RNA: MIR159 microRNA precursor family
Organism: Acer saccharum
RNA sequence: AUAUAACAGAGGGAGCUCCCUUCAGUCCAAGACAUGACAGCGAAAACUGAACUGAGCUCCUGCUUCGUUGGAUCAGAAACACACCAUUUUUAAUAAAAUAAUUUCAUGAUGAGCUCUUGAACCAACGACUCAGCAGCUAAGUGCCAGCCUCUUCACUGCCUAGAACUGGACUGAAGAGAGCUCCUUCACUUCUUCUC
Numbered sequence: 001a002u003a004u005a006a007c008a009g010a011g012g013g014a015g016c017u018c019c020c021u022u023c024a025g026u027c028c029a030a031g032a033c034a035u036g037a038c039a040g041c042g043a044a045a046a047c048u049g050a051a052c053u054g055a056g057c058u059c060c061u062g063c064u065u066c067g068u069u070g071g072a073u074c075a076g077a078a079a080c081a082c083a084c085c086a087u088u089u090u091u092a093a094u095a096a097a098a099u100a101a102u103u104u105c106a107u108g109a110u111g112a113g114c115u116c117u118u119g120a121a122c123c124a125a126c127g128a129c130u131c132a133g134c135a136g137c138u139a140a141g142u143g144c145c146a147g148c149c150u151c152u153u154c155a156c157u158g159c160c161u162a163g164a165a166c167u168g169g170a171c172u173g174a175a176g177a178g179a180g181c182u183c184c185u186u187c188a189c190u191u192c193u194u195c196u197c
Stems, first nucleotide, its partner, number of pairs: 013183006020176001023173007036160001057136002060133003066127004074119001